[Rfam]
RNA: MIR5272 microRNA precursor family
RNA sequence: UUUGAUGUGAAUUGGUUAUGUUUGGAUACCUCGCUUAAAAGUAAUUCAUAUAAGUUGAUGUUGUUUGGAUAG
Numbered sequence: 001u002u003u004g005a006u007g008u009g010a011a012u013u014g015g016u017u018a019u020g021u022u023u024g025g026a027u028a029c030c031u032c033g034c035u036u037a038a039a040a041g042u043a044a045u046u047c048a049u050a051u052a053a054g055u056u057g058a059u060g061u062u063g064u065u066u067g068g069a070u071a072g
Stems, first nucleotide, its partner, number of pairs: 011059007020051002024047004030041002